[Rfam]
RNA: Mammalian CPEB3 ribozyme
RNA sequence: AAUCAGUCAUAGCAGGCCAUAGCAGAAGCACUUAUGGUGAGGUCUGUCAGAUUGCACUGAAUUUGUUAAUUCUGCU
Numbered sequence: 001a002a003u004c005a006g007u008c009a010u011a012g013c014a015g016g017c018c019a020u021a022g023c024a025g026a027a028g029c030a031c032u033u034a035u036g037g038u039g040a041g042g043u044c045u046g047u048c049a050g051a052u053u054g055c056a057c058u059g060a061a062u063u064u065g066u067u068a069a070u071u072c073u074g075c076u
Base pairs, nucleotide, nucleotide: 015044016043017042018041021076022075023074024073025072026071027070029039030038048065049064050063051062052061053060